[Rfam]
Background:
This 98-nucleotide RNA sequence from Chitinibacter fontanus belongs to the Rfam family "Glycine riboswitch aptamer". Rfam links the family to the GO term glycine biosynthetic process. The source organism's lineage runs through Bacteria, Pseudomonadati, Neisseriales, Chitinibacteraceae and Chitinibacter.
Nucleotides: 098
Stems, first nucleotide, its partner, number of pairs: 006093008020041008043078003046074002050072003057065001
Number, partner (000 for none) and nucleotide at each position: 001000g002000c003000c004000c005000g006093u007092u008091a009090a010089g011088c012087a013086g014000g015000a016000g017000a018000g019000u020041g021040u022039a023038u024037u025036u026035g027034u028000c029000u030000a031000g032000u033000a034027a035026c036025a037024a038023a039022u040021a041020c042000c043078a044077c045076c046074g047073a048000a049000g050072g051071c052070g053000c054000a055000a056000u057065g058000g059000c060000a061000c062000c063000c064000g065057c066000g067000a068000a069000u070052c071051g072050c073047u074046c075000a076045g077044g078043u079000c080000a081000a082000a083000g084000g085000a086013c087012u088011g089010c090009u091008u092007a093006a094000u095000c096000g097000a098000c